[Rfam]
RNA sequence: CGAGUAAGUCAGAUGGUCGCGUCACAUAUUUUGUGAUGAGGAAAGUCCGAGCUCCAUAGGGCAGGGUGCUGGGUAAUACCCAGUGGAGGUGACUCCAAGGAAAGUGCAACAGAAAUAUACCGCCAGUGUAAGCUGGUAAGGGUGGAAAGGUGAGGUAAGAGCUCACCAGAGACUAGGCGACUAGUCUGCUCUGUAAACCCCAUCUGGAGCAAGACCAAGUAGGGACAUAAAAAGGUGGUAGCCCGCUGCCGUCCCGUUGGUAGGUCGCAUGAGCCUACUGGCAACAGUAGGCCUAGAUAGAUGGCUGUCUAACACAGAACUCGGCUUAUAGAUUUGCUCGUAUA
Numbered sequence: 001c002g003a004g005u006a007a008g009u010c011a012g013a014u015g016g017u018c019g020c021g022u023c024a025c026a027u028a029u030u031u032u033g034u035g036a037u038g039a040g041g042a043a044a045g046u047c048c049g050a051g052c053u054c055c056a057u058a059g060g061g062c063a064g065g066g067u068g069c070u071g072g073g074u075a076a077u078a079c080c081c082a083g084u085g086g087a088g089g090u091g092a093c094u095c096c097a098a099g100g101a102a103a104g105u106g107c108a109a110c111a112g113a114a115a116u117a118u119a120c121c122g123c124c125a126g127u128g129u130a131a132g133c134u135g136g137u138a139a140g141g142g143u144g145g146a147a148a149g150g151u152g153a154g155g156u157a158a159g160a161g162c163u164c165a166c167c168a169g170a171g172a173c174u175a176g177g178c179g180a181c182u183a184g185u186c187u188g189c190u191c192u193g194u195a196a197a198c199c200c201c202a203u204c205u206g207g208a209g210c211a212a213g214a215c216c217a218a219g220u221a222g223g224g225a226c227a228u229a230a231a232a233a234g235g236u237g238g239u240a241g242c243c244c245g246c247u248g249c250c251g252u253c254c255c256g257u258u259g260g261u262a263g264g265u266c267g268c269a270u271g272a273g274c275c276u277a278c279u280g281g282c283a284a285c286a287g288u289a290g291g292c293c294u295a296g297a298u299a300g301a302u303g304g305c306u307g308u309c310u311a312a313c314a315c316a317g318a319a320c321u322c323g324g325c326u327u328a329u330a331g332a333u334u335u336g337c338u339c340g341u342a343u344a
Base pairs, nucleotide, nucleotide: 001340002339003338004337005336006335007334008333009332010331011329012309013308014307015306016305017304018303020038021037022036023035024034025033026032043327044326045325047324048323049322050321051320052209053208054207055206059244060243061242062241064205065204066203067202068201069083070082071081072080073079084098085096086095087094088093099200100199104198105197106194107193108192120141121140122137123136124135125134126133127132149167150166151165152164153163154162169189170187171186172185173184174183175182176181213266214265215264216263223254224253225252226251235249236248237247238246239245273292274291275290276289277288278287279286280285
Shown here is a 344-nucleotide sequence from Maledivibacter halophilus, a member of the family "Bacterial RNase P class A". Pairs were carried over by alignment from the consensus structure, which is taken from published work. By type it is a ribozyme. Its family is annotated with ribonuclease P activity, tRNA processing and dimeric ribonuclease P complex in the Gene Ontology. NCBI's taxonomy places the organism under Bacteria, Bacillota, Peptostreptococcales, Caminicellaceae, Maledivibacter.